[Rfam]
RNA: Iron response element I
Organism: Vombatus ursinus
RNA sequence: UGGUUUUCUGCUUCAACAGUGUUUGAAUGGAAACGG
Dot-bracket structure: (.((((((.(.((((((...).)))))))))))).)
Numbered sequence: 001u002g003g004u005u006u007u008c009u010g011c012u013u014c015a016a017c018a019g020u021g022u023u024u025g026a027a028u029g030g031a032a033a034c035g036g
Stems, first nucleotide, its partner, number of pairs: 001036001003034006010028001012027005017021001